RNA sequence: CCAAUUAAAUCUGAACAGGCGGUGAACUCUUAGAGGUUCAUGCGGCCGGAUCACACAUGUGUGAUAGCAGAGUAGUGCCAAAAAGGCACACCUGUGGGACAGUA
Number, nucleotide and partner (000 for none) at each position: 001c000002c000003a000004a000005u000006u000007a000008a000009a000010u000011c102012u101013g100014a000015a000016c098017a000018g047019g046020c045021g000022g041023u040024g039025a038026a037027c036028u000029c000030u000031u000032a000033g000034a000035g000036g027037u026038u025039c024040a023041u022042g000043c000044g000045g020046c019047c018048g000049g000050a065051u064052c063053a062054c061055a000056c000057a000058u000059g000060u000061g054062u053063g052064a051065u050066a000067g095068c094069a093070g092071a000072g000073u000074a000075g000076u000077g000078c000079c000080a000081a000082a000083a000084a000085g000086g000087c000088a000089c000090a000091c000092c070093u069094g068095u067096g000097g000098g016099a000100c013101a012102g011103u000104a000

About this RNA:
The family of this 104-nucleotide RNA from Carnobacterium sp. 17-4 is "NiCo (Nickel/Cobalt) riboswitch aptamer". The family is grouped with related families in Rfam's "NiCo_riboswitches". The sequence is in the family's curated seed alignment.